[Rfam]
RNA: Small nucleolar RNA R30/Z108
Organism: Tripterygium wilfordii
RNA sequence: GUAGAUUACAAUGAGGAUUCUUAGCUCCCUCUUCUGAUUGGAGUUGAAGAGAUUGGCUGGCAGAAUCGAACCUAUGACUUUUAUAGCCAUCACUGAGUAA
Numbered sequence: 001g002u003a004g005a006u007u008a009c010a011a012u013g014a015g016g017a018u019u020c021u022u023a024g025c026u027c028c029c030u031c032u033u034c035u036g037a038u039u040g041g042a043g044u045u046g047a048a049g050a051g052a053u054u055g056g057c058u059g060g061c062a063g064a065a066u067c068g069a070a071c072c073u074a075u076g077a078c079u080u081u082u083a084u085a086g087c088c089a090u091c092a093c094u095g096a097g098u099a100a
Stems, first nucleotide, its partner, number of pairs: 006100004